RNA sequence: CUGUUUGGAGGAGGCGUCGAUCCGGGUCGUCCACACCGAUCCCAUCCGGGACACGGAGACAGCGGUCACCUAGACGGCUCGGGGAGCAAAUGGUGAGACCGGCCCCCGCAGGG
Numbered sequence: 001c002u003g004u005u006u007g008g009a010g011g012a013g014g015c016g017u018c019g020a021u022c023c024g025g026g027u028c029g030u031c032c033a034c035a036c037c038g039a040u041c042c043c044a045u046c047c048g049g050g051a052c053a054c055g056g057a058g059a060c061a062g063c064g065g066u067c068a069c070c071u072a073g074a075c076g077g078c079u080c081g082g083g084g085a086g087c088a089a090a091u092g093g094u095g096a097g098a099c100c101g102g103c104c105c106c107c108g109c110a111g112g113g
Base pairs, nucleotide, nucleotide: 001113002112004110006108007107008106010104011103014087015086022082023081024080025079026078027077028076029075064100065099066096067095068094069093070092
RNA: c-di-GMP-II-GAG riboswitch aptamer